RNA sequence: AAUUAUGUUCGUACUUCGUAAGGAGAAAGAAAAGCAGAUAUAUUCUAUACUCGAUAAGUGCCAAUAUGCAAUGGGU
Numbered sequence: 001a002a003u004u005a006u007g008u009u010c011g012u013a014c015u016u017c018g019u020a021a022g023g024a025g026a027a028a029g030a031a032a033a034g035c036a037g038a039u040a041u042a043u044u045c046u047a048u049a050c051u052c053g054a055u056a057a058g059u060g061c062c063a064a065u066a067u068g069c070a071a072u073g074g075g076u
Stems, first nucleotide, its partner, number of pairs: 003029002006026001008024003050075003058067003
Notes
Shown here is a 76-nucleotide RNA sequence from Zizania palustris, a member of the family "Plastid-clpP 5UTR RNA".